[Rfam]
RNA sequence: UUUAAGUGUAAUUGUGGGUUUCCGUAUCCAAUGUUUGACUGUUCGUCUUAUUUGAAAAAUGUAUUAAAAAAAAUUAACAAAAUUAGUCAAGCUUAAAUUACUAUUCGUGUUUAUCAUCUAAUAAUAAUAAAAAUAACAAUCAUAAAAAAUUUUCAAAUAAGACAAACGGUCAAACGUUAGACACAAAAACGCAAAACUGCGUUCUUU
Numbered sequence: 001u002u003u004a005a006g007u008g009u010a011a012u013u014g015u016g017g018g019u020u021u022c023c024g025u026a027u028c029c030a031a032u033g034u035u036u037g038a039c040u041g042u043u044c045g046u047c048u049u050a051u052u053u054g055a056a057a058a059a060u061g062u063a064u065u066a067a068a069a070a071a072a073a074u075u076a077a078c079a080a081a082a083u084u085a086g087u088c089a090a091g092c093u094u095a096a097a098u099u100a101c102u103a104u105u106c107g108u109g110u111u112u113a114u115c116a117u118c119u120a121a122u123a124a125u126a127a128u129a130a131a132a133a134u135a136a137c138a139a140u141c142a143u144a145a146a147a148a149a150u151u152u153u154c155a156a157a158u159a160a161g162a163c164a165a166a167c168g169g170u171c172a173a174a175c176g177u178u179a180g181a182c183a184c185a186a187a188a189a190c191g192c193a194a195a196a197c198u199g200c201g202u203u204c205u206u207u
Base pairs, nucleotide, nucleotide: 027181028180030178031177032176034174035173036172037171038170039169040168041167042166043165045163046162047161048160049159050158051157
A member of the RNA family "MIR812 microRNA precursor family" from Oryza punctata, 207 nucleotides long.
The family's consensus secondary structure was predicted with RNAalifold.
The source organism's lineage runs through Eukaryota, Tracheophyta, Poaceae, Oryzeae and Oryza.
Gene Ontology terms of the family: RISC complex and miRNA-mediated post-transcriptional gene silencing.